The family of this 119-nucleotide sequence from Corchorus capsularis is "Small nucleolar RNA Z278".
Rfam links the family to the GO terms nucleolus and RNA processing.
The family has 7 seed sequences and 1,130 matches in Rfam 15.1.
The family's RNA type in Rfam is C/D-box small nucleolar RNA.
A reference for the family is Chen et al. (2003), "The high diversity of snoRNAs in plants: identification and comparative study of 120 snoRNA genes from Oryza sativa", Nucleic Acids Res.
The base pairs follow the family's consensus structure, which was predicted with PFOLD.

RNA sequence: GCCAAUGAGGAUAUAAUCCACUUUGGAUGAGGUGCAGUGGAGCCAUGUCCCUGUUUAUCAGGGAGAACCUACUUGGCAGAAGCUGCAAUUUCACUGAUAUCAAUGGAUUCUACUGAGGC
Numbered sequence: 001g002c003c004a005a006u007g008a009g010g011a012u013a014u015a016a017u018c019c020a021c022u023u024u025g026g027a028u029g030a031g032g033u034g035c036a037g038u039g040g041a042g043c044c045a046u047g048u049c050c051c052u053g054u055u056u057a058u059c060a061g062g063g064a065g066a067a068c069c070u071a072c073u074u075g076g077c078a079g080a081a082g083c084u085g086c087a088a089u090u091u092c093a094c095u096g097a098u099a100u101c102a103a104u105g106g107a108u109u110c111u112a113c114u115g116a117g118g119c
Stems, first nucleotide, its partner, number of pairs: 001119003049063005